[Rfam]
Photosynthesis regulatory RNA1: a 79-nucleotide sequence from Richelia sinica. NCBI's taxonomy places the organism under Bacteria, Bacillati, Nostocales, Nostocaceae, Richelia sinica. It scores 56 bits against the family's covariance model. From the family's description: Formerly known as Syr1 discovered in Synechocystis sp PCC 6803, is a regulatory factor controlling photosynthetic functions. PsrR1 interacts with the ribosome binding regions of several photosynthesis-related mRNAs. In particular, psaL mRNA is processed by RNase E only in the presence of PsrR1. Rfam 15.1 lists 92 matches to the family in 57 species.

RNA sequence: AAAAACUGACAUCGGUAUCGCUAUCUCUCAUCGACAUUUGAUCUUCUCCCAACCGCCUCAGUUAACGACUGAGGUUUUU
Numbered sequence: 001a002a003a004a005a006c007u008g009a010c011a012u013c014g015g016u017a018u019c020g021c022u023a024u025c026u027c028u029c030a031u032c033g034a035c036a037u038u039u040g041a042u043c044u045u046c047u048c049c050c051a052a053c054c055g056c057c058u059c060a061g062u063u064a065a066c067g068a069c070u071g072a073g074g075u076u077u078u079u
Stems, first nucleotide, its partner, number of pairs: 055075008